RNA sequence: GGCUGUGAGGUGUUCUUGUCAUUGUGAUUUGAGGCUAAAAUCACUGAGAAAUCACAUUGCCAGGGAUUCCCAUACAGCC
Numbered sequence: 001g002g003c004u005g006u007g008a009g010g011u012g013u014u015c016u017u018g019u020c021a022u023u024g025u026g027a028u029u030u031g032a033g034g035c036u037a038a039a040a041u042c043a044c045u046g047a048g049a050a051a052u053c054a055c056a057u058u059g060c061c062a063g064g065g066a067u068u069c070c071c072a073u074a075c076a077g078c079c
Base pairs, nucleotide, nucleotide: 001079002078004076005075006074009071010070012067013066014065015064016063017062018061020059021058023056024055025054026053027052028051029050030049
RNA: mir-23 microRNA precursor family